This 582-nucleotide sequence belongs to the Rfam family "ROOL RNA". About the family: Firmicutes, Fusobacteria (1 example), Tenericutes (1 example). The family's RNA type in Rfam is small RNA.
RNA sequence: UUUCAGAAUUAUGUUUGCAAUAACCCCGAUGAAAACGGUUGUCAACCUUUCGGGACAUGACUAUAAUGAAUGUUUAUGGAAUGAUAGUUUUAUAAGCAAGUCAACUUUGUAUUAUGAAAGUAUGCAAGAUGAGAGGAAAAUCCUCAAAUUUAGUUGUGGUGCUAAGAGUUAUCGCUUCAAAAAGCACAGAACUUAUCGCUGUGGUAAUAGACGCUUCUGUGAAGAAUAAGCCUUAUACUAACGAGUGGAAUCGCAAAGUCACUAAGGUAAUCCAAACUAACACAGUCUGUUUUGAUGUCUGAGAAAUCAGGCUAUAAGGUAAGUCGCUGGUAAAAGUAGCCAUAUGACAGUAUUGGAACUUUUCUUUAUAAGUAAUAGCAAAUAUUAUGAAUUAAUGAAGAUUUUAGAUGCUGAAUGACUGGUGAAAUUUGUGUAUAACCAAUUACACACAAGCUCUGAGAGGAAUCUACGGUAAGAAGCUAUGGGGUCGCUACUCAUAGUUCAGCCUUAUCGUCUUGGUGGCUGAAUAUUGGAGAAGAUAAUGGAGGUACGGCGAAGGUCGUAUUGCAAACAUAAUUGUGG
Numbered sequence: 001u002u003u004c005a006g007a008a009u010u011a012u013g014u015u016u017g018c019a020a021u022a023a024c025c026c027c028g029a030u031g032a033a034a035a036c037g038g039u040u041g042u043c044a045a046c047c048u049u050u051c052g053g054g055a056c057a058u059g060a061c062u063a064u065a066a067u068g069a070a071u072g073u074u075u076a077u078g079g080a081a082u083g084a085u086a087g088u089u090u091u092a093u094a095a096g097c098a099a100g101u102c103a104a105c106u107u108u109g110u111a112u113u114a115u116g117a118a119a120g121u122a123u124g125c126a127a128g129a130u131g132a133g134a135g136g137a138a139a140a141u142c143c144u145c146a147a148a149u150u151u152a153g154u155u156g157u158g159g160u161g162c163u164a165a166g167a168g169u170u171a172u173c174g175c176u177u178c179a180a181a182a183a184g185c186a187c188a189g190a191a192c193u194u195a196u197c198g199c200u201g202u203g204g205u206a207a208u209a210g211a212c213g214c215u216u217c218u219g220u221g222a223a224g225a226a227u228a229a230g231c232c233u234u235a236u237a238c239u240a241a242c243g244a245g246u247g248g249a250a251u252c253g254c255a256a257a258g259u260c261a262c263u264a265a266g267g268u269a270a271u272c273c274a275a276a277c278u279a280a281c282a283c284a285g286u287c288u289g290u291u292u293u294g295a296u297g298u299c300u301g302a303g304a305a306a307u308c309a310g311g312c313u314a315u316a317a318g319g320u321a322a323g324u325c326g327c328u329g330g331u332a333a334a335a336g337u338a339g340c341c342a343u344a345u346g347a348c349a350g351u352a353u354u355g356g357a358a359c360u361u362u363u364c365u366u367u368a369u370a371a372g373u374a375a376u377a378g379c380a381a382a383u384a385u386u387a388u389g390a391a392u393u394a395a396u397g398a399a400g401a402u403u404u405u406a407g408a409u410g411c412u413g414a415a416u417g418a419c420u421g422g423u424g425a426a427a428u429u430u431g432u433g434u435a436u437a438a439c440c441a442a443u444u445a446c447a448c449a450c451a452a453g454c455u456c457u458g459a460g461a462g463g464a465a466u467c468u469a470c471g472g473u474a475a476g477a478a479g480c481u482a483u484g485g486g487g488u489c490g491c492u493a494c495u496c497a498u499a500g501u502u503c504a505g506c507c508u509u510a511u512c513g514u515c516u517u518g519g520u521g522g523c524u525g526a527a528u529a530u531u532g533g534a535g536a537a538g539a540u541a542a543u544g545g546a547g548g549u550a551c552g553g554c555g556a557a558g559g560u561c562g563u564a565u566u567g568c569a570a571a572c573a574u575a576a577u578u579g580u581g582g
Base pairs, nucleotide, nucleotide: 008578010576015571016570020566025054026053027052028051029050035049037047038046039045056158057157058156059155060154061153067103068102069101071098072097074095075094076093077092078091079090080089081088082087106128107127108126109125113122114121115120133145134144135143136142137141168563170542177534178533180531183530184524187329188328189327191324192323193322194321195320196319197318198286199285200284201283202282203281214224215223216222217221230268231267232266233265234264235263238258239257242253243252244251246274247273248272249271287350288349289348290347291346297312298311299310300309301308333428339423340422341421342420410506411505412504413503450518451517452516453468460466472512475509476508479502481499482498483497484496485495486494551562552561553560554559
Dot-bracket structure: .......(.(....((...(....(((((.....(.(((.....))).)))))).((((((.....(((.((.(((((((((....))))))))).))..)))..((((...(((....)))..))))....(((((...))))).......)))))).........(.(......((.(..((..(((.(((((((((((((..........((((...)))).....((((((..((..(((.[[[[.)))...))....))))))..]]]]......))))))[[[[[.....(((((......))))).....)))))))..)))...(.....((((...]]]]]...........................................................[[[[......))))....).....................((((......(.....).)...(..((..(.((((((.......))))))..)]]]].))..)...))).....).....)).)).......)........((((....)))))..)...))....).)....